The family of this 179-nucleotide sequence from Saccharospirillum sp. MSK14-1 is "6S / SsrS RNA". It is annotated as a non-coding RNA gene. For this family Rfam cites "6S RNA regulates E. coli RNA polymerase activity" (Wassarman and Storz, Cell, 2000).
RNA sequence: GUGUCCCUGGGCUAUGCGCCAGUCGUGCACAGUCCUCGAGCCGAUACUUUGAAUACAGGUGUUCCUGAGUUGUCGAUGUGAGCAUGUCCGCUGGUCGGAAAGCCUAAUUCGAUACGUGGAACGCCGCCUUGGACUUCACGGUUCAAGGUCUCCCACGGCAGCGGUAGUCUGGGGCAUUU
Numbered sequence: 001g002u003g004u005c006c007c008u009g010g011g012c013u014a015u016g017c018g019c020c021a022g023u024c025g026u027g028c029a030c031a032g033u034c035c036u037c038g039a040g041c042c043g044a045u046a047c048u049u050u051g052a053a054u055a056c057a058g059g060u061g062u063u064c065c066u067g068a069g070u071u072g073u074c075g076a077u078g079u080g081a082g083c084a085u086g087u088c089c090g091c092u093g094g095u096c097g098g099a100a101a102g103c104c105u106a107a108u109u110c111g112a113u114a115c116g117u118g119g120a121a122c123g124c125c126g127c128c129u130u131g132g133a134c135u136u137c138a139c140g141g142u143u144c145a146a147g148g149u150c151u152c153c154c155a156c157g158g159c160a161g162c163g164g165u166a167g168u169c170u171g172g173g174g175c176a177u178u179u
Base pairs, nucleotide, nucleotide: 005174006173007172008171009170010169011168012167013166014165015164017163018162019161032150034148035147038144039143040142041141042140058125059124060123062121063120064119065118071114072113073112074111075110076109082103083102087099088098089097090096